[Rfam]
RNA sequence: GUUUUAUGAUGAUCCCCAUGCGUGUCAACUGAUCCCAGAAUCCCCUGCUUCUUUGUGUCUCUGCUAGUGUUUUGCUAGUGGGUGUGCAUGGGGUUGCAGGGCUCUGGGGCCAUGAUCAGAGCUCACAAAGGCUGAAAAC
Numbered sequence: 001g002u003u004u005u006a007u008g009a010u011g012a013u014c015c016c017c018a019u020g021c022g023u024g025u026c027a028a029c030u031g032a033u034c035c036c037a038g039a040a041u042c043c044c045c046u047g048c049u050u051c052u053u054u055g056u057g058u059c060u061c062u063g064c065u066a067g068u069g070u071u072u073u074g075c076u077a078g079u080g081g082g083u084g085u086g087c088a089u090g091g092g093g094u095u096g097c098a099g100g101g102c103u104c105u106g107g108g109g110c111c112a113u114g115a116u117c118a119g120a121g122c123u124c125a126c127a128a129a130g131g132c133u134g135a136a137a138a139c
Base pairs, nucleotide, nucleotide: 001139002138003137004136043101044100045099046098047097048096051093

A member of the RNA family "Small nucleolar RNA SNORD10" from Synaphobranchus kaupii, 139 nucleotides long. For this family Rfam cites "RNomics: an experimental approach that identifies 201 candidates for novel, small, non-messenger RNAs in mouse" (Huttenhofer et al., EMBO J, 2001). A search with the family's covariance model found it, with a score of 86 bits. Rfam links the family to the GO terms RNA processing and nucleolus. The base pairs follow the family's consensus structure, which was predicted with WAR. Rfam classes the family as a C/D-box small nucleolar RNA.